[Rfam]
RNA sequence: GAACAACCAUACAGGAAUAACAGCAUAAUUGCUAACCGGCCCCGUGAAUCUAACGAGAGUUCUGCAGAAUAAGCGAAUAAAGAAUGGACGGGUGUGGUUUAGUACGUAAGCGCGGAUUAACAUCCGCGAAUCGUGCACGUCAGCGGUCUCUGCUGAUGUCUUUGGAAGAUUCGGCAUCCUGGCUUGG
Numbered sequence: 001g002a003a004c005a006a007c008c009a010u011a012c013a014g015g016a017a018u019a020a021c022a023g024c025a026u027a028a029u030u031g032c033u034a035a036c037c038g039g040c041c042c043c044g045u046g047a048a049u050c051u052a053a054c055g056a057g058a059g060u061u062c063u064g065c066a067g068a069a070u071a072a073g074c075g076a077a078u079a080a081a082g083a084a085u086g087g088a089c090g091g092g093u094g095u096g097g098u099u100u101a102g103u104a105c106g107u108a109a110g111c112g113c114g115g116a117u118u119a120a121c122a123u124c125c126g127c128g129a130a131u132c133g134u135g136c137a138c139g140u141c142a143g144c145g146g147u148c149u150c151u152g153c154u155g156a157u158g159u160c161u162u163u164g165g166a167a168g169a170u171u172c173g174g175c176a177u178c179c180u181g182g183c184u185u186g187g
Stems, first nucleotide, its partner, number of pairs: 001062004070186005089181004094175002102136005111128006138158008
RNA: R2 RNA element
Organism: Hermetia illucens